[Rfam]
RNA sequence: GAAUAUAAAUUAAUAAAUCAUCGUAUAACCCCGUUAAUAUGGUAUGGGGGUUUCUACCAAGCACCUUAAACGCUUGAUUACGAGGAAGAUGCAGUGCGCA
Numbered sequence: 001g002a003a004u005a006u007a008a009a010u011u012a013a014u015a016a017a018u019c020a021u022c023g024u025a026u027a028a029c030c031c032c033g034u035u036a037a038u039a040u041g042g043u044a045u046g047g048g049g050g051u052u053u054c055u056a057c058c059a060a061g062c063a064c065c066u067u068a069a070a071c072g073c074u075u076g077a078u079u080a081c082g083a084g085g086a087a088g089a090u091g092c093a094g095u096g097c098g099c100a
Stems, first nucleotide, its partner, number of pairs: 018086002021083005029049006058076005
About this RNA
Shown here is a 100-nucleotide RNA from Fusibacter sp. 3D3, a member of the family "Purine riboswitch aptamer". Gene Ontology term of the family: purine nucleobase biosynthetic process. The match comes from Rfam's covariance-model search (77 bits). The family has 133 seed sequences and 4,097 matches in Rfam 15.1.